[Rfam]
RNA sequence: ACACUCUGGUUUCUCCUCAGAUUGAAUAAAUCUUUUGCCUUUUACUAAAGAGUUCCAUGGAGAGGAAUAACUCUGAGUCUUAUAGCAAUUUUUUGAGGCCUUGCCCUGGCAAGGCU
Dot-bracket structure: ..((((..(((((((.(((........((.(((((...........))))).))...))).)))))))......)))).................(.((((((......)))))))
The record is a 116-nucleotide RNA sequence from Balaenoptera physalus, which matches "U5 spliceosomal RNA" in Rfam. By type it is a spliceosomal small nuclear RNA. From the family's description: U5 RNA is a component of both types of known spliceosome. The precise function of this molecule is unknown, though it is known that the 5' loop is required for splice site selection and p220 binding, and that both the 3' stem-loop and the Sm site are important for Sm protein binding and cap methylation. The organism belongs to Balaenoptera, within Eukaryota. It scores 91 bits against the family's covariance model.